The record is a 97-nucleotide sequence from Pseudidiomarina indica, which matches "Bacterial small signal recognition particle RNA" in Rfam. About the family: The signal recognition particle (SRP) is a universally conserved ribonucleoprotein involved in the co-translational targeting of proteins to membranes. Clan: SRP clan. Rfam classes the family as a non-coding RNA gene. Lineage of the source: Bacteria > Pseudomonadati > Pseudomonadota > Idiomarinaceae > Pseudidiomarina. It scores 73 bits against the family's covariance model.
RNA sequence: CAUUGGUCCCCUCGCAACAUGAACUGGCGAACCCGGUCAGGCCCGGAAGGGAGCAGCCGUAGUCAGGGAAAUGUGUGCCGGGGUGUGGCUGGUGGGG
Numbered sequence: 001c002a003u004u005g006g007u008c009c010c011c012u013c014g015c016a017a018c019a020u021g022a023a024c025u026g027g028c029g030a031a032c033c034c035g036g037u038c039a040g041g042c043c044c045g046g047a048a049g050g051g052a053g054c055a056g057c058c059g060u061a062g063u064c065a066g067g068g069a070a071a072u073g074u075g076u077g078c079c080g081g082g083g084u085g086u087g088g089c090u091g092g093u094g095g096g097g
Base pairs, nucleotide, nucleotide: 004091005090006089007088008087010083011082012081013080014079015075017074018073019072020071024066025065026064027063028062034059035058036057037056042051043050044049